[Rfam]
RNA sequence: UACUUCCAAAACAACAAAAGCCCUGCCUCUCUUUCGUCCUUGCGGCUCCGAUGACCGCUCCAGUGUGAAUCAGAAAACCAUUCCGUAA
Numbered sequence: 001u002a003c004u005u006c007c008a009a010a011a012c013a014a015c016a017a018a019a020g021c022c023c024u025g026c027c028u029c030u031c032u033u034u035c036g037u038c039c040u041u042g043c044g045g046c047u048c049c050g051a052u053g054a055c056c057g058c059u060c061c062a063g064u065g066u067g068a069a070u071c072a073g074a075a076a077a078c079c080a081u082u083c084c085g086u087a088a
Stems, first nucleotide, its partner, number of pairs: 034068003039063002042058004047053001
A member of the RNA family "BsrC" from Paenibacillus sp. JCM 10914, 88 nucleotides long. It is annotated as a small RNA. Rfam's curators write: The 301 nucleotide sequence from Kouji Nakamura has been trimmed to a highly conserved ~85 nucleotide long core to form this family. A reference for the family is Saito et al. (2008), "Novel small RNA-encoding genes in the intergenic regions of Bacillus subtilis", Gene. The family's consensus secondary structure was predicted with CMfinder. The source organism's lineage runs through Bacteria, Bacillota, Bacilli, Caryophanales and Paenibacillus.